[Rfam]
RNA sequence: CCACCAUCAUCAUCACCUAGCAUAGCCUUUCAGGUUUGUGCUGGAAGGUUCGUUGUUUCCUUCCAGUGGCGCAGAUGAAACGUUUAUCGACCCCCGGAAGGAAACUUCCGGGGGUUUUUCGUU
Numbered sequence: 001c002c003a004c005c006a007u008c009a010u011c012a013u014c015a016c017c018u019a020g021c022a023u024a025g026c027c028u029u030u031c032a033g034g035u036u037u038g039u040g041c042u043g044g045a046a047g048g049u050u051c052g053u054u055g056u057u058u059c060c061u062u063c064c065a066g067u068g069g070c071g072c073a074g075a076u077g078a079a080a081c082g083u084u085u086a087u088c089g090a091c092c093c094c095c096g097g098a099a100g101g102a103a104a105c106u107u108c109c110g111g112g113g114g115u116u117u118u119u120c121g122u123u
Base pairs, nucleotide, nucleotide: 008040009039010038012035013034014033020031041066042065043064044063045062046061047060048059086119089116090115091114092113093112094111095110096109097108098107099106100105
Annotation:
Histidine operon leader: a 123-nucleotide RNA sequence from Alteromonas halophila. Rfam's curators write: At least 6 amino acid operons are known to be regulated by attenuation. Pairs were carried over by alignment from the consensus structure, which is taken from published work. For this family Rfam cites "Attenuation in amino acid biosynthetic operons" (Kolter and Yanofsky, Annu Rev Genet, 1982). A search with the family's covariance model found it, with a score of 64 bits.